Description: A member of the RNA family "U12 minor spliceosomal RNA" from Carlito syrichta, 150 nucleotides long. Its family is annotated with pre-mRNA branch point binding, mRNA branch site recognition and U12 snRNP in the Gene Ontology. The source organism's lineage runs through Eukaryota, Bilateria, Amniota, Euarchontoglires and Carlito. Rfam classes the family as a spliceosomal small nuclear RNA. Pairs were carried over by alignment from the consensus structure.
RNA sequence: AUGCCUUAAACUUAUGAGUAAGGAAAAUAGCCGUUUGGGAUGAAGCCUGAAUCCUCACUGCUAAUGUGAGAUGAAUUUUUGAGUGGGUGAAGGUUGCCCCUAAGGUGACCCUCCUACUUUGUGGGAUGCCUGGGAGUCGUGAUCUGCCCA
Numbered sequence: 001a002u003g004c005c006u007u008a009a010a011c012u013u014a015u016g017a018g019u020a021a022g023g024a025a026a027a028u029a030g031c032c033g034u035u036u037g038g039g040a041u042g043a044a045g046c047c048u049g050a051a052u053c054c055u056c057a058c059u060g061c062u063a064a065u066g067u068g069a070g071a072u073g074a075a076u077u078u079u080u081g082a083g084u085g086g087g088u089g090a091a092g093g094u095u096g097c098c099c100c101u102a103a104g105g106u107g108a109c110c111c112u113c114c115u116a117c118u119u120u121g122u123g124g125g126a127u128g129c130c131u132g133g134g135a136g137u138c139g140u141g142a143u144c145u146g147c148c149c150a
Stems, first nucleotide, its partner, number of pairs: 004023005033052007054070005084150005091145007100134002103131005109125003113121001
Dot-bracket structure: ...(((((..........))))).........(((((((......))))))).(((((.......))))).............(((((..(((((((..((.(((((.(((.(.......).))).))))).))....))))))))))))